[Rfam]
RNA sequence: AAUCAUAAGGAGCAAAUCUAUCGAAAGGUAGAGACGCAAAGCCACGGGUCUUAAGAUAGUACUGAUUCUAUCAAAGAUAGCCGGGUUGCAGAA
Numbered sequence: 001a002a003u004c005a006u007a008a009g010g011a012g013c014a015a016a017u018c019u020a021u022c023g024a025a026a027g028g029u030a031g032a033g034a035c036g037c038a039a040a041g042c043c044a045c046g047g048g049u050c051u052u053a054a055g056a057u058a059g060u061a062c063u064g065a066u067u068c069u070a071u072c073a074a075a076g077a078u079a080g081c082c083g084g085g086u087u088g089c090a091g092a093a
Stems, first nucleotide, its partner, number of pairs: 012037002017032006040087004045083003048078003055072004
Dot-bracket structure: ...........((...((((((....))))))...))..((((.((((((....((((..........))))...)))..)))))))......
The record is a 93-nucleotide sequence from Desulfosporosinus fructosivorans, which matches "c-di-GMP-I riboswitch aptamer" in Rfam. Rfam links the family to the GO term cyclic-di-GMP binding. A search with the family's covariance model found it, with a score of 77 bits. The source organism's lineage runs through Bacteria, Bacillati, Eubacteriales, Desulfitobacteriaceae and Desulfosporosinus.